[Rfam]
RNA sequence: GGUGCCUUUGAAACCAUCUCCUAGGUUUCUUCGGAAGGACUUCGGUCCGUGUACUUCUAGCACAAGAUGCUAGUUUCAGGGUACGGGCACCCCCCCCUCAUUUAAUGGGGGGCCUCCUCAAGGAG
Numbered sequence: 001g002g003u004g005c006c007u008u009u010g011a012a013a014c015c016a017u018c019u020c021c022u023a024g025g026u027u028u029c030u031u032c033g034g035a036a037g038g039a040c041u042u043c044g045g046u047c048c049g050u051g052u053a054c055u056u057c058u059a060g061c062a063c064a065a066g067a068u069g070c071u072a073g074u075u076u077c078a079g080g081g082u083a084c085g086g087g088c089a090c091c092c093c094c095c096c097c098u099c100a101u102u103u104a105a106u107g108g109g110g111g112g113c114c115u116c117c118u119c120a121a122g123g124a125g
Stems, first nucleotide, its partner, number of pairs: 001091007010029006019125001021123002037048004051084004057073006092112006098105001

Pseudoknot of tRNA-like structure: a 125-nucleotide RNA from Cucumovirus CMV. By type it is a cis-regulatory element. Rfam's curators put it in the seed alignment. Pairs were carried over by alignment from the consensus structure, which is taken from published work. Its family is annotated with regulation of viral genome replication in the Gene Ontology.